The family of this 92-nucleotide RNA from Nicotiana attenuata is "MIR6152 microRNA precursor family".
Rfam links the family to the GO terms miRNA-mediated post-transcriptional gene silencing and RISC complex.
[Rfam]
RNA sequence: UGGACAAUUAUUGUAUUCGACUGUAUUCACGGCGUAGAAUAGGGGAUUACAACUGUUUUUAAAAAGAAAGUGAAUCAAUUAACAUAACUCCU
Number, nucleotide and partner (000 for none) at each position: 001u000002g091003g090004a089005c000006a000007a000008u000009u000010a000011u087012u086013g085014u084015a000016u082017u081018c000019g080020a079021c000022u077023g076024u000025a075026u074027u073028c072029a071030c070031g000032g000033c066034g000035u064036a059037g058038a057039a056040u055041a054042g053043g000044g000045g000046a000047u000048u000049a000050c000051a000052a000053c042054u041055g040056u039057u038058u037059u036060u000061a000062a000063a000064a035065a000066g033067a000068a000069a000070g030071u029072g028073a027074a026075u025076c023077a022078a000079u020080u019081a017082a016083c000084a014085u013086a012087a011088c000089u004090c003091c002092u000